[Rfam]
Overview
Rfam assigns this 75-nucleotide RNA to the family "L13-Bacteroidia ribosomal protein leader". For this family Rfam cites "Discovery of 20 novel ribosomal leader candidates in bacteria and archaea" (Eckert and Weinberg, BMC Microbiol, 2020). It is annotated as a cis-regulatory leader.
RNA sequence: GAAGGAUGUCUUAGGUCCUUCGGUCUCGUCGUGUUAAUAGCUGUACUUUUGGCCGAGUGCGGUGGUUAGUGAAUC
Numbered sequence: 001g002a003a004g005g006a007u008g009u010c011u012u013a014g015g016u017c018c019u020u021c022g023g024u025c026u027c028g029u030c031g032u033g034u035u036a037a038u039a040g041c042u043g044u045a046c047u048u049u050u051g052g053c054c055g056a057g058u059g060c061g062g063u064g065g066u067u068a069g070u071g072a073a074u075c
Base pairs, nucleotide, nucleotide: 001021002020003019004018005017006016034069035068036067037066038065040063041062042061043060044059045058046057047056048055